[Rfam]
RNA sequence: CUUGCCAAGGAGCGUUGCGACCCGGAAUCUAGCCGGGCCAGGCUUGGCAACUGAACAACGGCGCUCGCAAACC
Numbered sequence: 001c002u003u004g005c006c007a008a009g010g011a012g013c014g015u016u017g018c019g020a021c022c023c024g025g026a027a028u029c030u031a032g033c034c035g036g037g038c039c040a041g042g043c044u045u046g047g048c049a050a051c052u053g054a055a056c057a058a059c060g061g062c063g064c065u066c067g068c069a070a071a072c073c
Stems, first nucleotide, its partner, number of pairs: 002050007021037005
Shown here is a 73-nucleotide RNA sequence from Parazoarcus communis, a member of the family "SAH (S-adenosyl-L-homocysteine) riboswitch aptamer". The organism belongs to Parazoarcus, within Bacteria. Gene Ontology terms of the family: S-adenosylhomocysteine metabolic process and regulation of gene expression. On this family, see Wang et al., Mol Cell 2008: "Riboswitches that sense S-adenosylhomocysteine and activate genes involved in coenzyme recycling".